[Rfam]
RNA sequence: AAAAAGGGUUUCUGCCGUGCGUGGCACGGAGGCGGUCACGCGGCCGCCUCCGCGGAAUCGACAUCAAGAGAUUUCGGAAGCACAAUUUUUGCAGUUGGGGGCGCCGGUAAUCGCUCGUUCCGGCGCUCCG
Numbered sequence: 001a002a003a004a005a006g007g008g009u010u011u012c013u014g015c016c017g018u019g020c021g022u023g024g025c026a027c028g029g030a031g032g033c034g035g036u037c038a039c040g041c042g043g044c045c046g047c048c049u050c051c052g053c054g055g056a057a058u059c060g061a062c063a064u065c066a067a068g069a070g071a072u073u074u075c076g077g078a079a080g081c082a083c084a085a086u087u088u089u090u091g092c093a094g095u096u097g098g099g100g101g102c103g104c105c106g107g108u109a110a111u112c113g114c115u116c117g118u119u120c121c122g123g124c125g126c127u128c129c130g
Stems, first nucleotide, its partner, number of pairs: 008081005013026005027052011053076007099128009109119003